[Rfam]
Small nucleolar RNA Z155: a 74-nucleotide RNA sequence from Panicum miliaceum. The match comes from Rfam's covariance-model search (78 bits).
RNA sequence: GGUUGACGUGAUGAUAAGCUUUCACAGAAACUCUAGUGUUGACCAAAAUUCAGACUACAAUUAUCUGAUCACCU
Numbered sequence: 001g002g003u004u005g006a007c008g009u010g011a012u013g014a015u016a017a018g019c020u021u022u023c024a025c026a027g028a029a030a031c032u033c034u035a036g037u038g039u040u041g042a043c044c045a046a047a048a049u050u051c052a053g054a055c056u057a058c059a060a061u062u063a064u065c066u067g068a069u070c071a072c073c074u
Base pairs, nucleotide, nucleotide: 001074002073004071005070006069

Description: The family's RNA type in Rfam is C/D-box small nucleolar RNA. On this family, see Chen et al., Nucleic Acids Res 2003: "The high diversity of snoRNAs in plants: identification and comparative study of 120 snoRNA genes from Oryza sativa". Taxonomically the source falls in Panicum sect. Panicum (Eukaryota, Viridiplantae, Euphyllophyta, Mesangiospermae). Gene Ontology terms of the family: nucleolus and RNA processing.